RNA sequence: UUGUCAGUAAGGGAGCUUCGUUCAGUCCAGUCCGAGGCAGUUUUAGAGCUGAAGACACAGCUGCUGGCUCGUUGGUUCGUGAACUCAUCCAACUCUCCGGGUCGUGAUUGAUGGGUUCUUGAUCCAAUGAUGCAGGAGCUAUGCUCAGUUUCUUCUGUCACGUCUUGGACUGAAGGGAGCUCCCUUUUUUCAAUUC
Numbered sequence: 001u002u003g004u005c006a007g008u009a010a011g012g013g014a015g016c017u018u019c020g021u022u023c024a025g026u027c028c029a030g031u032c033c034g035a036g037g038c039a040g041u042u043u044u045a046g047a048g049c050u051g052a053a054g055a056c057a058c059a060g061c062u063g064c065u066g067g068c069u070c071g072u073u074g075g076u077u078c079g080u081g082a083a084c085u086c087a088u089c090c091a092a093c094u095c096u097c098c099g100g101g102u103c104g105u106g107a108u109u110g111a112u113g114g115g116u117u118c119u120u121g122a123u124c125c126a127a128u129g130a131u132g133c134a135g136g137a138g139c140u141a142u143g144c145u146c147a148g149u150u151u152c153u154u155c156u157g158u159c160a161c162g163u164c165u166u167g168g169a170c171u172g173a174a175g176g177g178a179g180c181u182c183c184c185u186u187u188u189u190u191c192a193a194u195u196c
Stems, first nucleotide, its partner, number of pairs: 013182007023172007036159001061138002064135003070129004078121001
RNA: MIR159 microRNA precursor family
Organism: Salvia splendens